[Rfam]
RNA sequence: CACCGGGAUAGAUCGACGGAUCGAAAAGCCGCAAACCCUAACGGCCUUACUGGUGAUGUCCAUAGGG
Numbered sequence: 001c002a003c004c005g006g007g008a009u010a011g012a013u014c015g016a017c018g019g020a021u022c023g024a025a026a027a028g029c030c031g032c033a034a035a036c037c038c039u040a041a042c043g044g045c046c047u048u049a050c051u052g053g054u055g056a057u058g059u060c061c062a063u064a065g066g067g
Stems, first nucleotide, its partner, number of pairs: 001055006008048001011022004028045004036067005